[Rfam]
RNA sequence: CUCGGUCCUCGGUAGUGGCUCUCAGGACGCCGACGACGUCGGCUCCGUGCUGCGGGCCUCGAUCGAAGACCGGC
Numbered sequence: 001c002u003c004g005g006u007c008c009u010c011g012g013u014a015g016u017g018g019c020u021c022u023c024a025g026g027a028c029g030c031c032g033a034c035g036a037c038g039u040c041g042g043c044u045c046c047g048u049g050c051u052g053c054g055g056g057c058c059u060c061g062a063u064c065g066a067a068g069a070c071c072g073g074c
Stems, first nucleotide, its partner, number of pairs: 002073006009066005017058005023052003027048003
RNA: Actino-pnp RNA
Organism: Nocardioides lianchengensis